[Rfam]
RNA sequence: AUAAUGGUUAACAAUAACCUUCGUAUAAGCUUAAUAAUAAGGUUUAAGCGUCUCUACUAUAUCACCGUAAAUGAUAUAACUAUGAAGUCUCUGGAUCCACGA
Numbered sequence: 001a002u003a004a005u006g007g008u009u010a011a012c013a014a015u016a017a018c019c020u021u022c023g024u025a026u027a028a029g030c031u032u033a034a035u036a037a038u039a040a041g042g043u044u045u046a047a048g049c050g051u052c053u054c055u056a057c058u059a060u061a062u063c064a065c066c067g068u069a070a071a072u073g074a075u076a077u078a079a080c081u082a083u084g085a086a087g088u089c090u091c092u093g094g095a096u097c098c099a100c101g102a
Stems, first nucleotide, its partner, number of pairs: 019087007029049006058078007
The family of this 102-nucleotide RNA from Clostridium disporicum is "Purine riboswitch aptamer". Pairs were carried over by alignment from the consensus structure, which is taken from published work.